[Rfam]
RNA: Bacillaceae-1 RNA
Organism: Falsibacillus albus
RNA sequence: UAAGAUGGAAGUUCGAUUCAGUUCGGCAGUUCGUGUGCCAAAAUCGAACGACCUCACUUCCUGUGAG
Numbered sequence: 001u002a003a004g005a006u007g008g009a010a011g012u013u014c015g016a017u018u019c020a021g022u023u024c025g026g027c028a029g030u031u032c033g034u035g036u037g038c039c040a041a042a043a044u045c046g047a048a049c050g051a052c053c054u055c056a057c058u059u060c061c062u063g064u065g066a067g
Stems, first nucleotide, its partner, number of pairs: 011049007025039004053067005